[Rfam]
RNA: MIR6152 microRNA precursor family
RNA sequence: UGGACAGAUUAUUGUAUUCGACUGUAUUCACGGCGUGAAAAAGGGGAUUACACUGUUUUUAAAACGGAAAGUGAAUCAAUUAACAUAACUAGUUUUA
Dot-bracket structure: .(((....(..((((.((.((.((.((((((..(((((((.((.........)).))))....)))....)))))))).)))).))))..)..))).